[Rfam]
RNA sequence: CCAGCCACGUCCCCUUAUCACUUUUCCGGCCCAGCUUUGUGACUGUCCGUGUUGGACGGAGAACUGAUAAGGGUGGGUGCCUGA
Numbered sequence: 001c002c003a004g005c006c007a008c009g010u011c012c013c014c015u016u017a018u019c020a021c022u023u024u025u026c027c028g029g030c031c032c033a034g035c036u037u038u039g040u041g042a043c044u045g046u047c048c049g050u051g052u053u054g055g056a057c058g059g060a061g062a063a064c065u066g067a068u069a070a071g072g073g074u075g076g077g078u079g080c081c082u083g084a
Base pairs, nucleotide, nucleotide: 012073013072014071015070016069017068018067019066020065022063023062024061025060026059027058030055031054